This 85-nucleotide RNA sequence from Eutrema salsugineum belongs to the Rfam family "Small nucleolar RNA R160". Pairs were carried over by alignment from the consensus structure. The match comes from Rfam's covariance-model search (53 bits). The literature on the family includes a 2003 paper in Nucleic Acids Res by Chen et al., "The high diversity of snoRNAs in plants: identification and comparative study of 120 snoRNA genes from Oryza sativa".

[Rfam]
RNA sequence: AGCAUGAUGAUGAGAAAAUUUUGUGCUCCUGAAAUCAAAUUCAUGUGGAUAUAAUAUAUAUACCUUCAAAGUUCUCUGAAUUGCU
Numbered sequence: 001a002g003c004a005u006g007a008u009g010a011u012g013a014g015a016a017a018a019u020u021u022u023g024u025g026c027u028c029c030u031g032a033a034a035u036c037a038a039a040u041u042c043a044u045g046u047g048g049a050u051a052u053a054a055u056a057u058a059u060a061u062a063c064c065u066u067c068a069a070a071g072u073u074c075u076c077u078g079a080a081u082u083g084c085u
Base pairs, nucleotide, nucleotide: 001085002084003083004082